MIR397 microRNA precursor family: a 114-nucleotide RNA sequence from Turnera subulata.
RNA sequence: AGAAAAAACAUGAUUGGGUGCAGCGCUGGUGAAAUCAUCCCACACCGGCAGAAGAAAGAAGAAGAAGGAGAAGAAUGUAGGGAUUCAUCAACGCUGCACUCAAUGAUGUUUUAA
Numbered sequence: 001a002g003a004a005a006a007a008a009c010a011u012g013a014u015u016g017g018g019u020g021c022a023g024c025g026c027u028g029g030u031g032a033a034a035u036c037a038u039c040c041c042a043c044a045c046c047g048g049c050a051g052a053a054g055a056a057a058g059a060a061g062a063a064g065a066a067g068g069a070g071a072a073g074a075a076u077g078u079a080g081g082g083a084u085u086c087a088u089c090a091a092c093g094c095u096g097c098a099c100u101c102a103a104u105g106a107u108g109u110u111u112u113a114a
Base pairs, nucleotide, nucleotide: 006111007110008109009108010107011106013104014103015102016101017100018099019098020097021096022095023094024093025092027090028089030087031086032085
Gene Ontology terms of the family: miRNA-mediated post-transcriptional gene silencing and RISC complex. The source organism's lineage runs through Eukaryota, Magnoliopsida, Gunneridae, Malpighiales and Turnera. Rfam 15.1 lists 496 matches to the family in 218 species. A search with the family's covariance model found it, with a score of 62 bits.